[Rfam]
RNA sequence: CUAUACACUGUGUGGCCAAAUUAUUAUGAUUUCUGAAUGCAUAAUAAUCUGGCCACUCAGUGUAUAU
Numbered sequence: 001c002u003a004u005a006c007a008c009u010g011u012g013u014g015g016c017c018a019a020a021u022u023a024u025u026a027u028g029a030u031u032u033c034u035g036a037a038u039g040c041a042u043a044a045u046a047a048u049c050u051g052g053c054c055a056c057u058c059a060g061u062g063u064a065u066a067u
Base pairs, nucleotide, nucleotide: 004064005063006062007061008060009059010058012056013055014054015053016052017051020048021047022046023045024044025043026042027041028040

The record is a 67-nucleotide RNA sequence from Cnephaeus nilssonii, which matches "mir-9256 microRNA precursor family" in Rfam. NCBI's taxonomy places the organism under Eukaryota, Metazoa, Sarcopterygii, Chiroptera, Cnephaeus. Its family is annotated with miRNA-mediated post-transcriptional gene silencing and RISC complex in the Gene Ontology.